[Rfam]
RNA sequence: UUAUGUUGUAAGCAAGGAAACUUACGCUGUAUAUCUGUGAUAUUACUGAAUGAAAGUUUAAACGUUAUUUAAGAACAUCAGCUACAAAGAGCCACCAUUUUUAGUGGUAUUUUUUGAA
Numbered sequence: 001u002u003a004u005g006u007u008g009u010a011a012g013c014a015a016g017g018a019a020a021c022u023u024a025c026g027c028u029g030u031a032u033a034u035c036u037g038u039g040a041u042a043u044u045a046c047u048g049a050a051u052g053a054a055a056g057u058u059u060a061a062a063c064g065u066u067a068u069u070u071a072a073g074a075a076c077a078u079c080a081g082c083u084a085c086a087a088a089g090a091g092c093c094a095c096c097a098u099u100u101u102u103a104g105u106g107g108u109a110u111u112u113u114u115u116g117a118a
Stems, first nucleotide, its partner, number of pairs: 007031004012025001014023003034088001036086004046081003049058003062078001064076003091108005

DUF3800-I RNA: a 118-nucleotide sequence. Rfam describes the family as follows. Actinobacteria, Firmicutes, Fusobacteria, Proteobacteria (1 example), Tenericutes (2 examples).